[Rfam]
RNA sequence: GGAGCAGGGAUAGUGUGUAUCGACGAUGUGCAAAUUUUCCGGUGCACUAUGUUCGAAAGAUUUUCCUGCAAAAUUGAUUCGGGGAAGGUGGGCAGUUGUGUUUCAUAUCCAUCGUUGAUACUUUUCAACAAUCAUCUUCCCCAUAUUG
Numbered sequence: 001g002g003a004g005c006a007g008g009g010a011u012a013g014u015g016u017g018u019a020u021c022g023a024c025g026a027u028g029u030g031c032a033a034a035u036u037u038u039c040c041g042g043u044g045c046a047c048u049a050u051g052u053u054c055g056a057a058a059g060a061u062u063u064u065c066c067u068g069c070a071a072a073a074u075u076g077a078u079u080c081g082g083g084g085a086a087g088g089u090g091g092g093c094a095g096u097u098g099u100g101u102u103u104c105a106u107a108u109c110c111a112u113c114g115u116u117g118a119u120a121c122u123u124u125u126c127a128a129c130a131a132u133c134a135u136c137u138u139c140c141c142c143a144u145a146u147u148g
Stems, first nucleotide, its partner, number of pairs: 004069007015047006081142011095129004
A member of the RNA family "small nucleolar RNA snoR135" from Hibiscus syriacus, 148 nucleotides long. Rfam 15.1 lists 837 matches to the family in 220 species. The family's consensus secondary structure was predicted with RNAalifold. It is annotated as an H/ACA-box small nucleolar RNA. Gene Ontology terms of the family: RNA processing and nucleolus. Lineage of the source: Eukaryota > Spermatophyta > Gunneridae > malvids > Hibiscus.